[Rfam]
RNA sequence: AAAAAGCCCGCUUUGCGUCGGCAUAAGCGGGCUUCUGUGCGGGGGAAAGCUGGAGCGGCGGUGAAAGAGAUGCGGCUGUUCCACCGUUCGCUUUAGCUGUUUUGGGUUGCCCCGCGUCCGCAAGCUGAGAUCAAAUCGACGCAAGCCAUCAUCCUAACAUAGCGCCGGGCGUACGC
Numbered sequence: 001a002a003a004a005a006g007c008c009c010g011c012u013u014u015g016c017g018u019c020g021g022c023a024u025a026a027g028c029g030g031g032c033u034u035c036u037g038u039g040c041g042g043g044g045g046a047a048a049g050c051u052g053g054a055g056c057g058g059c060g061g062u063g064a065a066a067g068a069g070a071u072g073c074g075g076c077u078g079u080u081c082c083a084c085c086g087u088u089c090g091c092u093u094u095a096g097c098u099g100u101u102u103u104g105g106g107u108u109g110c111c112c113c114g115c116g117u118c119c120g121c122a123a124g125c126u127g128a129g130a131u132c133a134a135a136u137c138g139a140c141g142c143a144a145g146c147c148a149u150c151a152u153c154c155u156a157a158c159a160u161a162g163c164g165c166c167g168g169g170c171g172u173a174c175g176c
Base pairs, nucleotide, nucleotide: 004034005033006032007031008030009029010028011027012026014023015022016021038143039142040141041140048092049091050090054088055087058084060082061081063080064079093128094127095126096125097124098123104113105112106111114121115120158175160173161172

Rfam assigns this 176-nucleotide sequence from Paraburkholderia sp. DHOC27 to the family "Burkholderia sRNA Bp2_Cand287_SIPHT".
Rfam classes the family as a small RNA.
The match comes from Rfam's covariance-model search (141 bits).
A reference for the family is Khoo et al. (2012), "Computational discovery and RT-PCR validation of novel Burkholderia conserved and Burkholderia pseudomallei unique sRNAs", BMC Genomics.
Lineage of the source: Bacteria > Pseudomonadati > Burkholderiales > Burkholderiaceae > Paraburkholderia.